A member of the RNA family "Fluoride riboswitch aptamer (crcB RNA motif)" from Bacilli bacterium VT-13-104, 62 nucleotides long.

[Rfam]
RNA sequence: UUCUAAAUAGACGAUGGAGUUCGCCAUUAACCGUCUUUUCGACUAAUCACUCCUGCCAGUUU
Numbered sequence: 001u002u003c004u005a006a007a008u009a010g011a012c013g014a015u016g017g018a019g020u021u022c023g024c025c026a027u028u029a030a031c032c033g034u035c036u037u038u039u040c041g042a043c044u045a046a047u048c049a050c051u052c053c054u055g056c057c058a059g060u061u062u
Stems, first nucleotide, its partner, number of pairs: 010025001012023002016053005033043003
The base pairs follow the family's consensus structure, which is taken from published work.